[Rfam]
RNA sequence: GUUGAGGGCACUGGAGGCAGCGGUUCAUCGAUCUGUUCCUGAAACUGUUAAUCUUCACAUUCAUUGCAGCAAUCGAUCGAUAAACCUCUGCAUCCAGGGCUCAACCA
Numbered sequence: 001g002u003u004g005a006g007g008g009c010a011c012u013g014g015a016g017g018c019a020g021c022g023g024u025u026c027a028u029c030g031a032u033c034u035g036u037u038c039c040u041g042a043a044a045c046u047g048u049u050a051a052u053c054u055u056c057a058c059a060u061u062c063a064u065u066g067c068a069g070c071a072a073u074c075g076a077u078c079g080a081u082a083a084a085c086c087u088c089u090g091c092a093u094c095c096a097g098g099g100c101u102c103a104a105c106c107a
Stems, first nucleotide, its partner, number of pairs: 013095003018090003022086004027081007036072002
The record is a 107-nucleotide RNA from Beta vulgaris, which matches "MIR162_1 microRNA precursor family" in Rfam. Pairs were carried over by alignment from the consensus structure, which was predicted with RNAalifold. A search with the family's covariance model found it, with a score of 90 bits. Its family is annotated with RISC complex and miRNA-mediated post-transcriptional gene silencing in the Gene Ontology. Taxonomically the source falls in Beta vulgaris (Eukaryota, Viridiplantae, Caryophyllales, Amaranthaceae). On this family, see Reinhart et al., Genes Dev 2002: "MicroRNAs in plants".